[Rfam]
This 87-nucleotide RNA from Geoalkalibacter ferrihydriticus belongs to the Rfam family "c-di-GMP-I riboswitch aptamer".
RNA sequence: UUCUGUCAAAGGCAAACCCAUCGAAAGGUGGAGACGCAAAGUUACCGGUCUACAGGGAACGUUUCCCAUGACAGCGGGACUGCCAGA
Numbered sequence: 001u002u003c004u005g006u007c008a009a010a011g012g013c014a015a016a017c018c019c020a021u022c023g024a025a026a027g028g029u030g031g032a033g034a035c036g037c038a039a040a041g042u043u044a045c046c047g048g049u050c051u052a053c054a055g056g057g058a059a060c061g062u063u064u065c066c067c068a069u070g071a072c073a074g075c076g077g078g079a080c081u082g083c084c085a086g087a
Base pairs, nucleotide, nucleotide: 012037013036018031019030020029021028022027040081041080042079043078045077046076047075048072049071050070055066056065057064058063